Plastid-ycf2 5UTR RNA: a 75-nucleotide sequence from Gossypium laxum. The literature on the family includes a 2023 paper in Plant Commun by Richter et al., "Retrograde signaling in plants: A critical review focusing on the GUN pathway and beyond". A search with the family's covariance model found it, with a score of 88 bits.

RNA sequence: UUGCAUUCAGUAGGAAUUGAACUUACGAAUUUGUCAAUUAUGAGUUGAGUGCUUAAACCAUUCAACCAUGGAUGC
Numbered sequence: 001u002u003g004c005a006u007u008c009a010g011u012a013g014g015a016a017u018u019g020a021a022c023u024u025a026c027g028a029a030u031u032u033g034u035c036a037a038u039u040a041u042g043a044g045u046u047g048a049g050u051g052c053u054u055a056a057a058c059c060a061u062u063c064a065a066c067c068a069u070g071g072a073u074g075c
Stems, first nucleotide, its partner, number of pairs: 003075006010026005040069003044066008

Description: The family's consensus secondary structure was predicted with LocARNA. Rfam classes the family as a cis-regulatory element. Plastid ycf2 is a non-coding RNA (ncRNA) recognised in plastids. It was found in the prime untranslated region (5UTR) of ycf2 genes, it presents a tRNA-like motif which suggests it can be involved in mRNA maturation, particularly involved in defining the precise 5' end of the transcript. The organism belongs to Gossypium, within Eukaryota.